This 111-nucleotide RNA from Cercocebus atys belongs to the Rfam family "Y RNA". On this family, see Teunissen et al., Nucleic Acids Res 2000: "Conserved features of Y RNAs: a comparison of experimentally derived secondary structures". A search with the family's covariance model found it, with a score of 70 bits. The family's consensus secondary structure is taken from published work. The organism belongs to Cercocebus, within Eukaryota.
[Rfam]
RNA sequence: GGCUGGUCUGAAAGUAGUGAGUUACUUCAAAUGACUAUUCAAAAACAUUAACAGACAGAAUUUCCUGUCAUACUCUCCUCCCUUCUCACUACUGCACUUGACUAGUCUUUA
Numbered sequence: 001g002g003c004u005g006g007u008c009u010g011a012a013a014g015u016a017g018u019g020a021g022u023u024a025c026u027u028c029a030a031a032u033g034a035c036u037a038u039u040c041a042a043a044a045a046c047a048u049u050a051a052c053a054g055a056c057a058g059a060a061u062u063u064c065c066u067g068u069c070a071u072a073c074u075c076u077c078c079u080c081c082c083u084u085c086u087c088a089c090u091a092c093u094g095c096a097c098u099u100g101a102c103u104a105g106u107c108u109u110u111a
Base pairs, nucleotide, nucleotide: 001107002106003105004104005103006102007101008100010099011098014095015094016090017089018088019087020086021085044074047071048070